[Rfam]
This 46-nucleotide RNA sequence from Rubripirellula tenax belongs to the Rfam family "Acido-Lenti-1 RNA". Pairs were carried over by alignment from the consensus structure, which is taken from published work.

RNA sequence: CCAAGGGCUUGCGCCCCUGGCUACCAUCCACUGUCGCUACGCGACU
Numbered sequence: 001c002c003a004a005g006g007g008c009u010u011g012c013g014c015c016c017c018u019g020g021c022u023a024c025c026a027u028c029c030a031c032u033g034u035c036g037c038u039a040c041g042c043g044a045c046u
Base pairs, nucleotide, nucleotide: 001020002019003018005016006015007014008013033045034044035043036042037041

It scores 41 bits against the family's covariance model.